Group II catalytic intron D1-D4-1: a 79-nucleotide RNA sequence. For this family Rfam cites "The ins and outs of group II introns" (Bonen and Vogel, Trends Genet, 2001).
RNA sequence: UAACCGCUAUUGUGAGAUAGCGUUGAGCGUACAGAAGUCAGCAGAGGUCAUAGUAGCUGUGUUUUUUUCAGUGAAGGAC
Numbered sequence: 001u002a003a004c005c006g007c008u009a010u011u012g013u014g015a016g017a018u019a020g021c022g023u024u025g026a027g028c029g030u031a032c033a034g035a036a037g038u039c040a041g042c043a044g045a046g047g048u049c050a051u052a053g054u055a056g057c058u059g060u061g062u063u064u065u066u067u068u069c070a071g072u073g074a075a076g077g078a079c
Stems, first nucleotide, its partner, number of pairs: 001025002005022007038045002047079003056072004